A member of the RNA family "Bacterial large subunit ribosomal RNA" from Algoriphagus machipongonensis, 597 nucleotides of a longer RNA. The base pairs follow the family's consensus structure, which is taken from published work.

RNA sequence: UAGUCGCGGUGAAGAUGCCGCGUACCCGCAACGGGACGGAAAGACCCCAUGCACCUUUACUGCAGCUUAGCAUUGGUACUGGACAAAUGAUGUGUAGGAUAGGUGGGAGACUAUGAAGCGGGUUCGCCAGGAUUCGUGGAGUCACUGUUGAAAUACCACCCUUUGUUUGUUUGGUAUCUAACCCUGAACAGGGGACAUUGCUUGGUGGGUAGUUUGACUGGGGUGGUCGCCUCCAAAAGAUAACGGAGGCUUCCAAAGGUCCCUCAGUACGCUUGGUAACCGUACGAGGAGCGCAAUAGCAUAAGGGAGCUUGACUGUAAGGCCGACAAGCCGAGCAGGGUGGAAACACGGGUAUAGUGAUCCGGCGGUUCUGAAUGGAAGGGCCGUCGCUCAAAGGAUAAAAGGUACGCUGGGGAUAACAGGCUGAUCUCCCCCAAGAGCUCAUAUCGACGGGGAGGUUUGGCACCUCGAUGUCGGCUCGUCACAUCCUGGGGCUGAAGAAGGUCCCAAGGGUUGGGCUGUUCGCCCAUUAAAGUGGCACGCGAGCUGGGUUCAGAACGUCGUGAGACAGUUCGGUCCCUAUCUGUUGCGGGCGUG
Numbered sequence: 001u002a003g004u005c006g007c008g009g010u011g012a013a014g015a016u017g018c019c020g021c022g023u024a025c026c027c028g029c030a031a032c033g034g035g036a037c038g039g040a041a042a043g044a045c046c047c048c049a050u051g052c053a054c055c056u057u058u059a060c061u062g063c064a065g066c067u068u069a070g071c072a073u074u075g076g077u078a079c080u081g082g083a084c085a086a087a088u089g090a091u092g093u094g095u096a097g098g099a100u101a102g103g104u105g106g107g108a109g110a111c112u113a114u115g116a117a118g119c120g121g122g123u124u125c126g127c128c129a130g131g132a133u134u135c136g137u138g139g140a141g142u143c144a145c146u147g148u149u150g151a152a153a154u155a156c157c158a159c160c161c162u163u164u165g166u167u168u169g170u171u172u173g174g175u176a177u178c179u180a181a182c183c184c185u186g187a188a189c190a191g192g193g194g195a196c197a198u199u200g201c202u203u204g205g206u207g208g209g210u211a212g213u214u215u216g217a218c219u220g221g222g223g224u225g226g227u228c229g230c231c232u233c234c235a236a237a238a239g240a241u242a243a244c245g246g247a248g249g250c251u252u253c254c255a256a257a258g259g260u261c262c263c264u265c266a267g268u269a270c271g272c273u274u275g276g277u278a279a280c281c282g283u284a285c286g287a288g289g290a291g292c293g294c295a296a297u298a299g300c301a302u303a304a305g306g307g308a309g310c311u312u313g314a315c316u317g318u319a320a321g322g323c324c325g326a327c328a329a330g331c332c333g334a335g336c337a338g339g340g341u342g343g344a345a346a347c348a349c350g351g352g353u354a355u356a357g358u359g360a361u362c363c364g365g366c367g368g369u370u371c372u373g374a375a376u377g378g379a380a381g382g383g384c385c386g387u388c389g390c391u392c393a394a395a396g397g398a399u400a401a402a403a404g405g406u407a408c409g410c411u412g413g414g415g416a417u418a419a420c421a422g423g424c425u426g427a428u429c430u431c432c433c434c435c436a437a438g439a440g441c442u443c444a445u446a447u448c449g450a451c452g453g454g455g456a457g458g459u460u461u462g463g464c465a466c467c468u469c470g471a472u473g474u475c476g477g478c479u480c481g482u483c484a485c486a487u488c489c490u491g492g493g494g495c496u497g498a499a500g501a502a503g504g505u506c507c508c509a510a511g512g513g514u515u516g517g518g519c520u521g522u523u524c525g526c527c528c529a530u531u532a533a534a535g536u537g538g539c540a541c542g543c544g545a546g547c548u549g550g551g552u553u554c555a556g557a558a559c560g561u562c563g564u565g566a567g568a569c570a571g572u573u574c575g576g577u578c579c580c581u582a583u584c585u586g587u588u589g590c591g592g593g594c595g596u597g
Base pairs, nucleotide, nucleotide: 005022006021007020008019009018025593026592027591028590029589030588031587032586034585035584036583038580039579046414047413048412049411051410052409053406054405055404056403057402059213060212061211062210066205067204069202070201071200072199075178076177077176078175079174080173081172082171083170084169085168086167087166088165089164090163092161102160103159104158105157106156109143110142111141118137119136120135121134122133123132124131125130182193183192184191216228217227218226219225229250230249231248232247233246234245251395253352254351259310260309261307262306263305264290265289267285268284269283270282271281291300292299315338316337317336318335321332322331323330340349341348342347363389364388365387366386367385368384369383371382372381423464424463425462427461428458429457430456431455432454433453434452438448439447475550476548477547478546479545480542481539482538483537484536485535488513489512491508492507493506494505495504496503515529516528517527518526519525556574557573558572559571560569561568562567
NCBI's taxonomy places the organism under Bacteria, Pseudomonadati, Cytophagia, Cyclobacteriaceae, Algoriphagus.